[Rfam]
RNA sequence: UUCUUAUCAAGAGAGGUGGAGGGAAUGGGCCCUGUGAAACCCGGCAACCUACUAAUAUAAUUAAUUUAUACAAUUGAUUAUUAAAGCGUGGUGCCAAUUCCUGCAGAGAUUCUGCAAGAUAAGAA
Number, nucleotide and partner (000 for none) at each position: 001u125002u124003c123004u122005u121006a120007u119008c118009a000010a000011g000012a000013g042014a000015g041016g040017u039018g000019g000020a000021g032022g031023g030024a000025a000026u103027g102028g101029g100030c023031c022032c021033u000034g000035u000036g000037a000038a000039a017040c016041c015042c013043g095044g094045c093046a092047a000048c091049c090050u088051a000052c086053u085054a000055a000056u000057a000058u000059a000060a000061u000062u000063a000064a000065u000066u000067u000068a000069u000070a000071c000072a000073a000074u000075u000076g000077a000078u000079u000080a000081u000082u000083a000084a000085a053086g052087c000088g050089u000090g049091g048092u046093g045094c044095c043096a000097a000098u000099u117100c029101c028102u027103g026104c114105a113106g112107a111108g000109a000110u000111u107112c106113u105114g104115c000116a000117a099118g008119a007120u006121a005122a004123g003124a002125a001
A member of the RNA family "SAM riboswitch aptamer (S box leader)" from Clostridium gasigenes, 125 nucleotides long. About the family: The SAM riboswitch is found upstream of a number of genes which code for proteins involved in methionine or cysteine biosynthesis in Gram-positive bacteria. Its family is annotated with regulation of gene expression in the Gene Ontology. The match comes from Rfam's covariance-model search (80 bits).